[Rfam]
RNA sequence: GGCCGGGCGCCCUGUGGAAGACUAGUGAUUUUGUUGUUGUAUGGCUCAUCCCACAACAAGUCACAGUCUGCCCUAGGGCGCACGGCC
Numbered sequence: 001g002g003c004c005g006g007g008c009g010c011c012c013u014g015u016g017g018a019a020g021a022c023u024a025g026u027g028a029u030u031u032u033g034u035u036g037u038u039g040u041a042u043g044g045c046u047c048a049u050c051c052c053a054c055a056a057c058a059a060g061u062c063a064c065a066g067u068c069u070g071c072c073c074u075a076g077g078g079c080g081c082a083c084g085g086c087c
Stems, first nucleotide, its partner, number of pairs: 002086004007081002010078005016072002019069005025064007033057005
RNA: mir-7 microRNA precursor family
Organism: Cairina moschata